RNA sequence: CGUGCUGCAGUUUCAUUUUGUGACCGACACUAACGGGUAAUGGCUGGCCGCAGGACUACUCGUUUUUGCGAUCACAAUACUGAAAUUGCAGCAA
Numbered sequence: 001c002g003u004g005c006u007g008c009a010g011u012u013u014c015a016u017u018u019u020g021u022g023a024c025c026g027a028c029a030c031u032a033a034c035g036g037g038u039a040a041u042g043g044c045u046g047g048c049c050g051c052a053g054g055a056c057u058a059c060u061c062g063u064u065u066u067u068g069c070g071a072u073c074a075c076a077a078u079a080c081u082g083a084a085a086u087u088g089c090a091g092c093a094a
Stems, first nucleotide, its partner, number of pairs: 003093008013083003018077006025070002028068002032064008